[Rfam]
RNA sequence: UGUAUUUAACUAUAUUCGACUGUAUUCACGACGUGAAAUAGGGGAUUACACUAUUUUUAAAACGGAAAAUGAAUCAAUUAACAUAAUAAACUACU
Numbered sequence: 001u002g003u004a005u006u007u008a009a010c011u012a013u014a015u016u017c018g019a020c021u022g023u024a025u026u027c028a029c030g031a032c033g034u035g036a037a038a039u040a041g042g043g044g045a046u047u048a049c050a051c052u053a054u055u056u057u058u059a060a061a062a063c064g065g066a067a068a069a070u071g072a073a074u075c076a077a078u079u080a081a082c083a084u085a086a087u088a089a090a091c092u093a094c095u
Stems, first nucleotide, its partner, number of pairs: 001093002007089001009087001011085003015081002018079002021076002024074005032064003035057007
RNA: MIR6152 microRNA precursor family
Organism: Nicotiana sylvestris